[Rfam]
A member of the RNA family "MIR5200 microRNA precursor family" from Brachypodium distachyon, 92 nucleotides long. Its family is annotated with RISC complex and miRNA-mediated post-transcriptional gene silencing in the Gene Ontology.
RNA sequence: CACUAGAGCCUUAGGGAAUAUCUACACUAGUAAGUUCUUUUCCUUUCUUCUGGACAUGCUUAGCAGUGUAGAUACUCCCUAAGGCUUCGGUC
Number, nucleotide and partner (000 for none) at each position: 001c000002a000003c000004u089005a000006g087007a086008g085009c084010c083011u082012u081013a080014g079015g000016g077017a076018a000019u074020a073021u072022c071023u070024a069025c068026a067027c000028u000029a000030g000031u062032a061033a060034g059035u058036u000037c000038u000039u054040u053041u052042c000043c000044u000045u000046u000047c000048u000049u000050c000051u000052g041053g040054a039055c000056a000057u000058g035059c034060u033061u032062a031063g000064c000065a000066g000067u026068g025069u024070a023071g022072a021073u020074a019075c000076u017077c016078c000079c014080u013081a012082a011083g010084g009085c008086u007087u006088c000089g004090g000091u000092c000